[Rfam]
RNA sequence: AUUUUGUGUCAAUUGCUAUACCUGAAAAAUGGUAUAGAGGAAACUCCACGCUUGCACAAUCUGCGAUGAUUGUAGUGUUUGUGUUGAACGAAAAAAUAAGUUCAAGCACCGGUAUUGGUGACGGCAAAAGAAACCUACGGUUAAGUAAUUAACUAUGGUGAAUUUGAAGUGCCACAGAGACGAGUAAAGGGAAACCUGGAAAUGGAACGCGGUAAACCCCACAAGCAAGAAACUCAAAUUUUGGUAGAGGAACUUGGCGUCCGGAAAUGAAUGGACAACGGGAUCGUGAGCGUUAGCAAACGAUAGAUAAAUAAUUGACCCUUAAUUAGCAAUAGUUAAGGAACAGAACGUGGGUUAUACGA
Numbered sequence: 001a002u003u004u005u006g007u008g009u010c011a012a013u014u015g016c017u018a019u020a021c022c023u024g025a026a027a028a029a030u031g032g033u034a035u036a037g038a039g040g041a042a043a044c045u046c047c048a049c050g051c052u053u054g055c056a057c058a059a060u061c062u063g064c065g066a067u068g069a070u071u072g073u074a075g076u077g078u079u080u081g082u083g084u085u086g087a088a089c090g091a092a093a094a095a096a097u098a099a100g101u102u103c104a105a106g107c108a109c110c111g112g113u114a115u116u117g118g119u120g121a122c123g124g125c126a127a128a129a130g131a132a133a134c135c136u137a138c139g140g141u142u143a144a145g146u147a148a149u150u151a152a153c154u155a156u157g158g159u160g161a162a163u164u165u166g167a168a169g170u171g172c173c174a175c176a177g178a179g180a181c182g183a184g185u186a187a188a189g190g191g192a193a194a195c196c197u198g199g200a201a202a203u204g205g206a207a208c209g210c211g212g213u214a215a216a217c218c219c220c221a222c223a224a225g226c227a228a229g230a231a232a233c234u235c236a237a238a239u240u241u242u243g244g245u246a247g248a249g250g251a252a253c254u255u256g257g258c259g260u261c262c263g264g265a266a267a268u269g270a271a272u273g274g275a276c277a278a279c280g281g282g283a284u285c286g287u288g289a290g291c292g293u294u295a296g297c298a299a300a301c302g303a304u305a306g307a308u309a310a311a312u313a314a315u316u317g318a319c320c321c322u323u324a325a326u327u328a329g330c331a332a333u334a335g336u337u338a339a340g341g342a343a344c345a346g347a348a349c350g351u352g353g354g355u356u357a358u359a360c361g362a
Stems, first nucleotide, its partner, number of pairs: 004362003008319007016037006042356003046353005051229005056073006079224005084105006106122001107120005123219002127165003133159003139154006169217002171213003188197003233249003253282004259276001283304005320341009